[Rfam]
Shown here is a 105-nucleotide RNA sequence from Clostridium ljungdahlii, a member of the family "PyrR binding site".
Rfam's curators write: This family represents the PyrR binding site and terminator structure.
The literature on the family includes a 2001 paper in Nucleic Acids Res by Bonner et al., "Molecular recognition of pyr mRNA by the Bacillus subtilis attenuation regulatory protein PyrR".
RNA sequence: AAGACCUUUAAAACUAGUCCUGUGAGACUGGGAAGGCAUAUGUAGAAUAUAAAAUUAUUAUAUUAUGGUAUAAUAAUGCCUUCCGCAAAGGAAGGCAUUUUUUUA
Numbered sequence: 001a002a003g004a005c006c007u008u009u010a011a012a013a014c015u016a017g018u019c020c021u022g023u024g025a026g027a028c029u030g031g032g033a034a035g036g037c038a039u040a041u042g043u044a045g046a047a048u049a050u051a052a053a054a055u056u057a058u059u060a061u062a063u064u065a066u067g068g069u070a071u072a073a074u075a076a077u078g079c080c081u082u083c084c085g086c087a088a089a090g091g092a093a094g095g096c097a098u099u100u101u102u103u104u105a
Base pairs, nucleotide, nucleotide: 005036006035007034008033009032014031015030016029017028018027019026043072044071046069048067049066050065051064052063054061055060073101075099076098077097078096079095080094081093082092083091084090